MIR7486 microRNA precursor family: an 87-nucleotide RNA from Gossypium mustelinum. Gene Ontology terms of the family: miRNA-mediated post-transcriptional gene silencing and RISC complex. The family's consensus secondary structure was predicted with RNAalifold.
RNA sequence: CACGUCAGCGCACUUUGAUGACGUGGACACAAACCGCGCUUACAUGGACGCGAUUUUCUACCACGUCAGCAAAGCACGCUGACGUGG
Numbered sequence: 001c002a003c004g005u006c007a008g009c010g011c012a013c014u015u016u017g018a019u020g021a022c023g024u025g026g027a028c029a030c031a032a033a034c035c036g037c038g039c040u041u042a043c044a045u046g047g048a049c050g051c052g053a054u055u056u057u058c059u060a061c062c063a064c065g066u067c068a069g070c071a072a073a074g075c076a077c078g079c080u081g082a083c084g085u086g087g
Stems, first nucleotide, its partner, number of pairs: 001086010013074005019068003023064004031056003035052004040047002
Taxonomically the source falls in Gossypium (Eukaryota, Euphyllophyta, Pentapetalae, Malvoideae).